[Rfam]
RNA sequence: UCGGCCCCGGUUCACGUACGGGCGGUCACCCCACCUCGUCCGCCAUCGGGCAGGCGGGGCCCGGACGACCCGGUGCC
Number, nucleotide and partner (000 for none) at each position: 001u000002c000003g077004g076005c075006c000007c073008c072009g071010g070011u000012u000013c000014a000015c067016g066017u065018a000019c063020g062021g061022g060023c059024g000025g000026u000027c000028a000029c000030c000031c000032c000033a000034c000035c000036u000037c000038g000039u000040c000041c000042g000043c000044c000045a000046u000047c000048g000049g000050g000051c000052a000053g000054g000055c000056g000057g000058g000059g023060c022061c021062c020063g019064g000065a017066c016067g015068a000069c000070c010071c009072g008073g007074u000075g005076c004077c003
RNA: L31-Actinobacteria ribosomal protein leader